The family of this 123-nucleotide RNA sequence from Cellulomonas sp. B6 is "Glycine riboswitch aptamer". The match comes from Rfam's covariance-model search (52 bits). Taxonomically the source falls in Cellulomonas (Bacteria, Bacillati, Micrococcales, Cellulomonadaceae).
RNA sequence: CGAACCGCGGCGGGAGAGCUCCCGCCGAUCGUCCGCCCGCACACCGGUGCGGACGGCAGCGCGGGACGCCGAAGGAGCAACCCUCCCCGGGAAUCUCUCAGGCCCCCGUACCGCCGCGGCCAG
Numbered sequence: 001c002g003a004a005c006c007g008c009g010g011c012g013g014g015a016g017a018g019c020u021c022c023c024g025c026c027g028a029u030c031g032u033c034c035g036c037c038c039g040c041a042c043a044c045c046g047g048u049g050c051g052g053a054c055g056g057c058a059g060c061g062c063g064g065g066a067c068g069c070c071g072a073a074g075g076a077g078c079a080a081c082c083c084u085c086c087c088c089g090g091g092a093a094u095c096u097c098u099c100a101g102g103c104c105c106c107c108g109u110a111c112c113g114c115c116g117c118g119g120c121c122a123g
Base pairs, nucleotide, nucleotide: 006118007117008116009115010114011113012112013111020066021065022064023063024062025061068103069102070101071099072098075097076096077095081090082089